[Rfam]
The record is an 89-nucleotide sequence from Aegilops tauschii, which matches "Small nucleolar RNA R16" in Rfam. The family's RNA type in Rfam is C/D-box small nucleolar RNA.

RNA sequence: GCUGGCAAGUGAUGAUCUGAUAUCCUACACUCUCAAUGGAAAAUUCCAUGUGUGGACUAUUAAUCUCAUCUUAUUAUCUGAUGCACAAA
Numbered sequence: 001g002c003u004g005g006c007a008a009g010u011g012a013u014g015a016u017c018u019g020a021u022a023u024c025c026u027a028c029a030c031u032c033u034c035a036a037u038g039g040a041a042a043a044u045u046c047c048a049u050g051u052g053u054g055g056a057c058u059a060u061u062a063a064u065c066u067c068a069u070c071u072u073a074u075u076a077u078c079u080g081a082u083g084c085a086c087a088a089a
Base pairs, nucleotide, nucleotide: 003087004086005084006083007082